[Rfam]
RNA sequence: AGUAUUACCCUCACUUGAGCAUUGGCUUGUCACUUGAAUCAGUAAGUGCUACUUGUUGGGGCAGUUUUA
Dot-bracket structure: ...(((.((((.((..(((((((.(((.............))).)))))).)..)).)))).)))....

A member of the RNA family "miR-430 microRNA precursor family" from Labrus bergylta, 69 nucleotides long. Rfam 15.1 lists 24,817 matches to the family in 105 species. Taxonomically the source falls in Labrus (Eukaryota, Deuterostomia, Neoteleostei, Eurypterygia). The family's consensus secondary structure was predicted with RNAalifold.